[Rfam]
Nucleotides: 057
Base pairs, nucleotide, nucleotide: 010048011047012046013045014044026043027042028041029040030039031038
Number, partner (000 for none) and nucleotide at each position: 001000g002000g003000u004000c005000c006000a007000c008000g009000a010048u011047u012046c013045c014044a015000c016000u017000a018000c019000g020000g021000a022000u023000c024000g025000u026043c027042g028041g029040g030039c031038a032000c033000g034000u035000a036000c037000c038031u039030g040029c041028c042027c043026g044014u045013g046012g047011a048010a049000a050000g051000g052000a053000a054000g055000u056000g057000u